A member of the RNA family "Bacteroides-1 RNA" from Bacteroides thetaiotaomicron, 81 nucleotides long.

[Rfam]
RNA sequence: AUGCUAAUCAGCUUGAUCUGUUUGUGAGUAUGUGAAUAUGAGUAAAUGGUACUUAUGCCUCUCCGGCAUAGACAGGUAUGA
Numbered sequence: 001a002u003g004c005u006a007a008u009c010a011g012c013u014u015g016a017u018c019u020g021u022u023u024g025u026g027a028g029u030a031u032g033u034g035a036a037u038a039u040g041a042g043u044a045a046a047u048g049g050u051a052c053u054u055a056u057g058c059c060u061c062u063c064c065g066g067c068a069u070a071g072a073c074a075g076g077u078a079u080g081a
Base pairs, nucleotide, nucleotide: 018049019048022045023044024043025042028039029038030037031036053071054070055069056068057067058066059065